[Rfam]
RNA sequence: UCACUCUGGUUUCUCUUUCUAACGCACAAGACUUCCGCCUUUUACUAAAGACUUCCUUGGAAGGGAACGCCGAUGAGUUGAAACUAUUUUUGGUGGGCUUCGCUGUUUGGCCGAGCC
Numbered sequence: 001u002c003a004c005u006c007u008g009g010u011u012u013c014u015c016u017u018u019c020u021a022a023c024g025c026a027c028a029a030g031a032c033u034u035c036c037g038c039c040u041u042u043u044a045c046u047a048a049a050g051a052c053u054u055c056c057u058u059g060g061a062a063g064g065g066a067a068c069g070c071c072g073a074u075g076a077g078u079u080g081a082a083a084c085u086a087u088u089u090u091u092g093g094u095g096g097g098c099u100u101c102g103c104u105g106u107u108u109g110g111c112c113g114a115g116c117c
Stems, first nucleotide, its partner, number of pairs: 003078004009068006016061003028054003032050003095117001097116004102111001
Dot-bracket structure: ..((((..((((((.(((.........(((.(((.............))).)))....))).))))))......))))................(.((((.(........).)))))
Source information:
The family of this 117-nucleotide sequence from Etheostoma spectabile is "U5 spliceosomal RNA". Lineage of the source: Eukaryota > Metazoa > Euteleostomi > Percoidei > Oligocephalus. Pairs were carried over by alignment from the consensus structure, which is taken from published work. By type it is a spliceosomal small nuclear RNA. Rfam describes the family as follows. U5 RNA is a component of both types of known spliceosome. The precise function of this molecule is unknown, though it is known that the 5' loop is required for splice site selection and p220 binding, and that both the 3' stem-loop and the Sm site are important for Sm protein binding and cap methylation.